[Rfam]
RNA sequence: UCCUCUCCAAUGCCGCAUUUCUUUGCUCACACACCGACAACCAGUCGCAAGACUGCGUUCGUCCCCCCCCAGCAAAUGAGAAAUUCGGAGUAAUCUUCACCCCAACCUUGCCUCUCACCUCGUCCCUAGGGCGAUGGUGAAUAGGCAAACCGCCCGUGAGGGCCUGCCGUGACAGUCUUCCUACACGGUUGCAUUUGGCAUCAGAAAUCUCAGCCCCCGCGCCCUCGCCUUUCGCGUGGGCGUCUUGGGGCUAUGGGAGCCGGUGCGAAGAUGGUGUGUGUCUUUCUCUCUCUCUUUUUGCGGAGGGGGGAAGGCACGAUCACUUCAGUGCAAUAUGCGGCGUAUCUGCGCUCUGCUUCCUUUCCCCUCCUUGUGGGGGUUUUGGGGGCGGGCAAGGGUAUCAUUCGAUUCCGAUUACUCUGUUGAGGA
Numbered sequence: 001u002c003c004u005c006u007c008c009a010a011u012g013c014c015g016c017a018u019u020u021c022u023u024u025g026c027u028c029a030c031a032c033a034c035c036g037a038c039a040a041c042c043a044g045u046c047g048c049a050a051g052a053c054u055g056c057g058u059u060c061g062u063c064c065c066c067c068c069c070c071a072g073c074a075a076a077u078g079a080g081a082a083a084u085u086c087g088g089a090g091u092a093a094u095c096u097u098c099a100c101c102c103c104a105a106c107c108u109u110g111c112c113u114c115u116c117a118c119c120u121c122g123u124c125c126c127u128a129g130g131g132c133g134a135u136g137g138u139g140a141a142u143a144g145g146c147a148a149a150c151c152g153c154c155c156g157u158g159a160g161g162g163c164c165u166g167c168c169g170u171g172a173c174a175g176u177c178u179u180c181c182u183a184c185a186c187g188g189u190u191g192c193a194u195u196u197g198g199c200a201u202c203a204g205a206a207a208u209c210u211c212a213g214c215c216c217c218c219g220c221g222c223c224c225u226c227g228c229c230u231u232u233c234g235c236g237u238g239g240g241c242g243u244c245u246u247g248g249g250g251c252u253a254u255g256g257g258a259g260c261c262g263g264u265g266c267g268a269a270g271a272u273g274g275u276g277u278g279u280g281u282c283u284u285u286c287u288c289u290c291u292c293u294c295u296u297u298u299u300g301c302g303g304a305g306g307g308g309g310g311a312a313g314g315c316a317c318g319a320u321c322a323c324u325u326c327a328g329u330g331c332a333a334u335a336u337g338c339g340g341c342g343u344a345u346c347u348g349c350g351c352u353c354u355g356c357u358u359c360c361u362u363u364c365c366c367c368u369c370c371u372u373g374u375g376g377g378g379g380u381u382u383u384g385g386g387g388g389c390g391g392g393c394a395a396g397g398g399u400a401u402c403a404u405u406c407g408a409u410u411c412c413g414a415u416u417a418c419u420c421u422g423u424u425g426a427g428g429a
Base pairs, nucleotide, nucleotide: 001429002428003427004426008422009421012341013340014339015338016337017336018335022076023075024074025073036063037062038061039059040058041057086413087412088411089410090409095270096269097268098267152163153162154161155160166189167188168187169186170185191266192265193264194263195262197260212252213251214250342401343400344399345398346397347396
Rfam assigns this 429-nucleotide sequence from Neohortaea acidophila to the family "Nuclear RNase P". A search with the family's covariance model found it, with a score of 36 bits. A reference for the family is Frank and Pace (1998), "Ribonuclease P: unity and diversity in a tRNA processing ribozyme", Annu Rev Biochem. Rfam 15.1 lists 3,848 matches to the family in 1,862 species. Its family is annotated with ribonuclease P complex, ribonuclease P activity and tRNA processing in the Gene Ontology. NCBI's taxonomy places the organism under Eukaryota, Dikarya, dothideomyceta, Mycosphaerellales, Neohortaea. Pairs were carried over by alignment from the consensus structure, which is taken from published work.